[Rfam]
RNA: Small nucleolar RNA snoR74
Organism: Triticum aestivum
RNA sequence: AAAAAAGCAGGAUGCUUUGCUCUUUAUAAGCAGUAUCCCCGUAAGCUUUAGGAACAUUAUGAUUAUUGUUCUUGGGUGAACCAUUGGACACAGUACUUUGUGUUUUAUGUCUAUUGGUUCAAUAAACGAUGGCACAUUU
Numbered sequence: 001a002a003a004a005a006a007g008c009a010g011g012a013u014g015c016u017u018u019g020c021u022c023u024u025u026a027u028a029a030g031c032a033g034u035a036u037c038c039c040c041g042u043a044a045g046c047u048u049u050a051g052g053a054a055c056a057u058u059a060u061g062a063u064u065a066u067u068g069u070u071c072u073u074g075g076g077u078g079a080a081c082c083a084u085u086g087g088a089c090a091c092a093g094u095a096c097u098u099u100g101u102g103u104u105u106u107a108u109g110u111c112u113a114u115u116g117g118u119u120c121a122a123u124a125a126a127c128g129a130u131g132g133c134a135c136a137u138u139u
Base pairs, nucleotide, nucleotide: 005048006047007046011037012036014034015033016032063132064131065130066129067128068127069126070125077121078120079119080118081117082116083115